[Rfam]
RNA sequence: CUGCUGUAGAAAUACCUGUUUCUCAUUCCCUUAGGAGCAGGAAUGCAUCUGUAGCAUGCUUGUAAAAAAGAAAUUCUUGAGGCUGCCAGUAUUAUAGCAAAGAUUAUACAGUAGUUUACAUCUCCAACCAAA
Numbered sequence: 001c002u003g004c005u006g007u008a009g010a011a012a013u014a015c016c017u018g019u020u021u022c023u024c025a026u027u028c029c030c031u032u033a034g035g036a037g038c039a040g041g042a043a044u045g046c047a048u049c050u051g052u053a054g055c056a057u058g059c060u061u062g063u064a065a066a067a068a069a070g071a072a073a074u075u076c077u078u079g080a081g082g083c084u085g086c087c088a089g090u091a092u093u094a095u096a097g098c099a100a101a102g103a104u105u106a107u108a109c110a111g112u113a114g115u116u117u118a119c120a121u122c123u124c125c126a127a128c129c130a131a132a
Base pairs, nucleotide, nucleotide: 003059004058005056006055007054015041016040017039018038019037020036021035022034070125072123082112083111088105089104090103092101093100

The family of this 132-nucleotide RNA from Jaculus jaculus is "Small nucleolar RNA U109".
It scores 63 bits against the family's covariance model.
The literature on the family includes a 2005 paper in Nucleic Acids Res by Gu et al., "A novel experimental approach for systematic identification of box H/ACA snoRNAs from eukaryotes".
Gene Ontology terms of the family: RNA processing and nucleolus.
Pairs were carried over by alignment from the consensus structure, which was predicted with WAR.
The family's RNA type in Rfam is H/ACA-box small nucleolar RNA.